RNA sequence: UGCGCUAUUUGAACCGCACCGGGUUUAGGAGGCUGCCUUUGUCGAUCAGUAUCGCGACACCUUCGGGGUCGAGCCGAUCGGCAAGGUUUUGCGGAUUGCCCCG
Numbered sequence: 001u002g003c004g005c006u007a008u009u010u011g012a013a014c015c016g017c018a019c020c021g022g023g024u025u026u027a028g029g030a031g032g033c034u035g036c037c038u039u040u041g042u043c044g045a046u047c048a049g050u051a052u053c054g055c056g057a058c059a060c061c062u063u064c065g066g067g068g069u070c071g072a073g074c075c076g077a078u079c080g081g082c083a084a085g086g087u088u089u090u091g092c093g094g095a096u097u098g099c100c101c102c103g
Stems, first nucleotide, its partner, number of pairs: 001018004064103005075098002078095002081092004

ALIL pseudoknot: a 103-nucleotide RNA from Mycetohabitans endofungorum. A search with the family's covariance model found it, with a score of 51 bits. Rfam classes the family as a cis-regulatory element. A reference for the family is Mazauric et al. (2008), "Apical loop-internal loop RNA pseudoknots: a new type of stimulator of -1 translational frameshifting in bacteria", J Biol Chem.